A member of the RNA family "pan motif" from Paenibacillus sp. JCM 10914, 132 nucleotides long. It is annotated as a cis-regulatory element. It scores 41 bits against the family's covariance model. The organism belongs to Paenibacillus, within Bacteria.
[Rfam]
Nucleotides: 132
Base pairs, nucleotide, nucleotide: 001031002030003029004027005026006025007024008023010022011021101128102127103126104124105123106122108120111118112117
Number, partner (000 for none) and nucleotide at each position: 001031g002030a003029g004027g005026c006025g007024g008023u009000a010022u011021c012000c013000c014000a015000u016000u017000a018000c019000g020000u021011g022010a023008a024007c025006u026005g027004c028000a029003c030002u031001c032000g033000a034000u035000g036000g037000u038000u039000u040000c041000u042000a043000u044000c045000u046000u047000g048000a049000g050000u051000u052000u053000g054000a055000g056000g057000a058000u059000u060000a061000a062000a063000g064000a065000a066000c067000a068000c069000c070000u071000u072000c073000a074000u075000a076000a077000c078000u079000g080000u081000u082000a083000u084000g085000u086000c087000g088000g089000u090000u091000a092000c093000g094000u095000u096000g097000g098000a099000u100000u101128c102127u103126g104124c105123u106122c107000u108120g109000a110000g111118c112117c113000g114000a115000a116000a117112g118111g119000a120108c121000c122106g123105a124104g125000a126103c127102a128101g129000a130000a131000g132000g